[Rfam]
RNA sequence: GGUCAACGCUAGGGGUGUCCGUGUCUGCCGUAAAAAGCAUUCUACGUGACUGAGAAUAUACUCUCACUACCUGAUCAGGAUAAUGCCUGCGAAGGGAAGCGUUGACCAACUUCA
Numbered sequence: 001g002g003u004c005a006a007c008g009c010u011a012g013g014g015g016u017g018u019c020c021g022u023g024u025c026u027g028c029c030g031u032a033a034a035a036a037g038c039a040u041u042c043u044a045c046g047u048g049a050c051u052g053a054g055a056a057u058a059u060a061c062u063c064u065c066a067c068u069a070c071c072u073g074a075u076c077a078g079g080a081u082a083a084u085g086c087c088u089g090c091g092a093a094g095g096g097a098a099g100c101g102u103u104g105a106c107c108a109a110c111u112u113c114a
Stems, first nucleotide, its partner, number of pairs: 006102005011064004016058001017050003070095003076089004
Shown here is a 114-nucleotide RNA, a member of the family "TPP riboswitch aptamer (THI element)".